A member of the RNA family "TPP riboswitch aptamer (THI element)" from Desulfosporosinus orientis, 112 nucleotides long. The base pairs follow the family's consensus structure, which is taken from published work.
[Rfam]
RNA sequence: AUAUUUGGGCAGGGGGGCUGGAAAGGCCGGCUGAGAUUUAGACCCUACGAAGUCUGAGACCCUUUAACCUGAUCUGGAUAAUGCCAGCGUAGGUAAGCAGUUUACUCUUUUA
Numbered sequence: 001a002u003a004u005u006u007g008g009g010c011a012g013g014g015g016g017g018c019u020g021g022a023a024a025g026g027c028c029g030g031c032u033g034a035g036a037u038u039u040a041g042a043c044c045c046u047a048c049g050a051a052g053u054c055u056g057a058g059a060c061c062c063u064u065u066a067a068c069c070u071g072a073u074c075u076g077g078a079u080a081a082u083g084c085c086a087g088c089g090u091a092g093g094u095a096a097g098c099a100g101u102u103u104a105c106u107c108u109u110u111u112a
Base pairs, nucleotide, nucleotide: 006100008098011063012062013061014060017031018030019029020028021027038057039056040055041054042053068093069092070091071090074087075086076085077084